[Rfam]
Nucleotides: 140
Stems, first nucleotide, its partner, number of pairs: 004069003008064005025055007036046003082133005090124001092122003096118007
Number, partner (000 for none) and nucleotide at each position: 001000a002000a003000u004069g005068g006067a007000a008064g009063c010062u011061g012060c013000a014000g015000g016000a017000a018000c019000c020000a021000u022000c023000c024000a025055u026054g027053u028052g029051g030050a031049c032000a033000a034000a035000u036046g037045a038044a039000a040000u041000a042000c043000u044038u045037u046036u047000u048000u049031g050030u051029c052028u053027a054026c055025a056000g057000u058000a059000u060012g061011c062010a063009g064008c065000c066000u067006u068005c069004c070000u071000a072000u073000a074000a075000a076000a077000u078000a079000u080000g081000u082133g083132g084131a085130g086129g087000u088000c089000u090124c091000u092122g093121u094120c095000u096118g097117g098116u099115u100114u101113a102112g103000g104000a105000c106000a107000g108000c109000u110000g111000a112102c113101u114100a115099a116098g117097c118096u119000u120094g121093a122092u123000c124090g125000u126000u127000c128000c129086c130085c131084u132083c133082c134000a135000u136000a137000c138000a139000a140000u